[Rfam]
RNA sequence: CCGUGCUAGACGGGGAGAUGGCGGUGCCCUGUAACCUGCAAUCCGCCUUAGCAGGGUUUAAUUCCUAACAGAGGUAUGAGUCAGGUAAGGUCUGACUUGGACAAGUGGUGUUGACAACUGGGUCCUGCACAACAGAAACCUAUGAACAUGGUCAGGUCCGGAAGGAAGCAGCCAUAAGUAGAUUCUUCUGUGUGUUGCAGCACAACCCGGUCGAGCUAACUGUACAAGUAACGCUUAUUUGAUCAUGUCAAUGACGGGUGCACGG
Numbered sequence: 001c002c003g004u005g006c007u008a009g010a011c012g013g014g015g016a017g018a019u020g021g022c023g024g025u026g027c028c029c030u031g032u033a034a035c036c037u038g039c040a041a042u043c044c045g046c047c048u049u050a051g052c053a054g055g056g057u058u059u060a061a062u063u064c065c066u067a068a069c070a071g072a073g074g075u076a077u078g079a080g081u082c083a084g085g086u087a088a089g090g091u092c093u094g095a096c097u098u099g100g101a102c103a104a105g106u107g108g109u110g111u112u113g114a115c116a117a118c119u120g121g122g123u124c125c126u127g128c129a130c131a132a133c134a135g136a137a138a139c140c141u142a143u144g145a146a147c148a149u150g151g152u153c154a155g156g157u158c159c160g161g162a163a164g165g166a167a168g169c170a171g172c173c174a175u176a177a178g179u180a181g182a183u184u185c186u187u188c189u190g191u192g193u194g195u196u197g198c199a200g201c202a203c204a205a206c207c208c209g210g211u212c213g214a215g216c217u218a219a220c221u222g223u224a225c226a227a228g229u230a231a232c233g234c235u236u237a238u239u240u241g242a243u244c245a246u247g248u249c250a251a252u253g254a255c256g257g258g259u260g261c262a263c264g265g
Stems, first nucleotide, its partner, number of pairs: 001265006008059004012030004017025001019023001035055005064258003069253002073249005080243010093230002097227003101223002105220002107217003115213001117211007125200005130192002133190005138183001140181004148175005157166003

The record is a 265-nucleotide RNA sequence from Priestia megaterium, which matches "Bacterial large signal recognition particle RNA" in Rfam. The family's consensus secondary structure is taken from published work.